RNA sequence: GAAUGCUGAGGGCGGAACAGGCAGCCGCCACCCAUUGUUAGGAGAUGUAGGAAUCGUCACCCUACCUCAUUC
Dot-bracket structure: (((((..(..(((((....[[[..))))).(..........)....(((((....]]]..)))))).)))))
Numbered sequence: 001g002a003a004u005g006c007u008g009a010g011g012g013c014g015g016a017a018c019a020g021g022c023a024g025c026c027g028c029c030a031c032c033c034a035u036u037g038u039u040a041g042g043a044g045a046u047g048u049a050g051g052a053a054u055c056g057u058c059a060c061c062c063u064a065c066c067u068c069a070u071u072c
Stems, first nucleotide, its partner, number of pairs: 001072005008066001011029005020058003031042001047065005